[Rfam]
Description: The record is an 84-nucleotide RNA sequence from Enterocytozoon bieneusi, which matches "tRNA" in Rfam. Lineage of the source: Eukaryota > Fungi > Microsporidia > Enterocytozoonidae > Enterocytozoon bieneusi. From the family's description: Transfer RNA (tRNA) molecules are approximately 80 nucleotides in length. It is annotated as a transfer RNA.
RNA sequence: GUUGCGGUGGCCGAGCGGUCUAAGGCGCCGGAGUUAGGGUCCGGUCUAUUUACAUAGGCGAGGGUUCGAAUCCCUUCCGCAAUA
Numbered sequence: 001g002u003u004g005c006g007g008u009g010g011c012c013g014a015g016c017g018g019u020c021u022a023a024g025g026c027g028c029c030g031g032a033g034u035u036a037g038g039g040u041c042c043g044g045u046c047u048a049u050u051u052a053c054a055u056a057g058g059c060g061a062g063g064g065u066u067c068g069a070a071u072c073c074c075u076u077c078c079g080c081a082a083u084a
Base pairs, nucleotide, nucleotide: 001083002082003081004080005079006078007077010026011025012024028044029043030042031041032040060076061075062074063073064072